[Rfam]
RNA sequence: UAACAUGUGGUGCCGGGGUAACUAAAACUCUGAGUUCUGUUAGCUUCAGAGUUUUGUUCCCCCGACUCCAUAUGGA
Numbered sequence: 001u002a003a004c005a006u007g008u009g010g011u012g013c014c015g016g017g018g019u020a021a022c023u024a025a026a027a028c029u030c031u032g033a034g035u036u037c038u039g040u041u042a043g044c045u046u047c048a049g050a051g052u053u054u055u056g057u058u059c060c061c062c063c064g065a066c067u068c069c070a071u072a073u074g075g076a
Stems, first nucleotide, its partner, number of pairs: 001076001004074004009069002012066001014064004020058003024055010034044002
Dot-bracket structure: (..((((.((.(.((((..(((.((((((((((((.......)).)))))))))))))..)))).).)).)))).)
The record is a 76-nucleotide RNA sequence from Branchiostoma floridae, which matches "mir-4872 microRNA precursor family" in Rfam. Its family is annotated with RISC complex and miRNA-mediated post-transcriptional gene silencing in the Gene Ontology. The family has 4 seed sequences and 72 matches in Rfam 15.1.